[Rfam]
The record is a 130-nucleotide sequence from Orycteropus afer, which matches "Small nucleolar RNA SNORA44" in Rfam. The family is grouped with related families in Rfam's "SNORA44 clan".
RNA sequence: CAGCAUGUUCCCAAGGUCUGUGGCUGAUGUGGCCACUGGAUCUCCAACUGCAUGCAAUAGCAACCUGGAGAGACUUUGACAGCGCAGGUCAGCAUAAUAUCUGCAGCUGCCACUCGCCUUUCCUAUAAAC
Numbered sequence: 001c002a003g004c005a006u007g008u009u010c011c012c013a014a015g016g017u018c019u020g021u022g023g024c025u026g027a028u029g030u031g032g033c034c035a036c037u038g039g040a041u042c043u044c045c046a047a048c049u050g051c052a053u054g055c056a057a058u059a060g061c062a063a064c065c066u067g068g069a070g071a072g073a074c075u076u077u078g079a080c081a082g083c084g085c086a087g088g089u090c091a092g093c094a095u096a097a098u099a100u101c102u103g104c105a106g107c108u109g110c111c112a113c114u115c116g117c118c119u120u121u122c123c124u125a126u127a128a129a130c
Stems, first nucleotide, its partner, number of pairs: 011038001016034001018032005067123006082110002085103004

Rfam describes the family as follows. ACA44 is a member of the H/ACA class of snoRNA that guide the sites of modification of uridines to pseudouridines. Its family is annotated with RNA processing and nucleolus in the Gene Ontology. It is annotated as an H/ACA-box small nucleolar RNA.